This 94-nucleotide RNA sequence from Thioalkalivibrio paradoxus belongs to the Rfam family "Burkholderia RNA 7 (anti-hemB)". Rfam classes the family as a small RNA. A reference for the family is Weinberg et al. (2007), "Identification of 22 candidate structured RNAs in bacteria using the CMfinder comparative genomics pipeline", Nucleic Acids Res. This RNA motif was identified by computational search in b-proteobacteria Burkholderia. Co-purified with Hfq, expression confirmed by Northern blot.
RNA sequence: UCUCCCGCUUCCCUCCCUGAGCGGGAUGGUUCCGGCCCCCCCUGCCGGAACCCAUCUUGCCCCGGUCAUCCCCCUGUGACCGGGGCAUUUUUUU
Numbered sequence: 001u002c003u004c005c006c007g008c009u010u011c012c013c014u015c016c017c018u019g020a021g022c023g024g025g026a027u028g029g030u031u032c033c034g035g036c037c038c039c040c041c042c043u044g045c046c047g048g049a050a051c052c053c054a055u056c057u058u059g060c061c062c063c064g065g066u067c068a069u070c071c072c073c074c075u076g077u078g079a080c081c082g083g084g085g086c087a088u089u090u091u092u093u094u
Stems, first nucleotide, its partner, number of pairs: 004025006028052009060085010